Annotation: This 83-nucleotide RNA sequence from Riemerella anatipestifer belongs to the Rfam family "tRNA". By type it is a transfer RNA. Pairs were carried over by alignment from the consensus structure, which is taken from published work.
[Rfam]
RNA sequence: GGGGAGAUACCAGAGUGGCCAAAUGGGACGGACUGUAACUCCGUUGUCGUGAGACUUCGCAGGUUCGAAUCCUGCUCUCCCCA
Numbered sequence: 001g002g003g004g005a006g007a008u009a010c011c012a013g014a015g016u017g018g019c020c021a022a023a024u025g026g027g028a029c030g031g032a033c034u035g036u037a038a039c040u041c042c043g044u045u046g047u048c049g050u051g052a053g054a055c056u057u058c059g060c061a062g063g064u065u066c067g068a069a070u071c072c073u074g075c076u077c078u079c080c081c082c083a
Stems, first nucleotide, its partner, number of pairs: 001082007010026003028044005059075005